[Rfam]
RNA: Mammalian CPEB3 ribozyme
RNA sequence: AGGUCACAACUUUGAGGCCAUAGCAGAAGCGUUCAUAGUGAGGCCAUAACAGAUUCCAAUGCAUCUGCAAAUUCUACU
Numbered sequence: 001a002g003g004u005c006a007c008a009a010c011u012u013u014g015a016g017g018c019c020a021u022a023g024c025a026g027a028a029g030c031g032u033u034c035a036u037a038g039u040g041a042g043g044c045c046a047u048a049a050c051a052g053a054u055u056c057c058a059a060u061g062c063a064u065c066u067g068c069a070a071a072u073u074c075u076a077c078u
Stems, first nucleotide, its partner, number of pairs: 013046001016045004022078002025075004030040002050067005056061001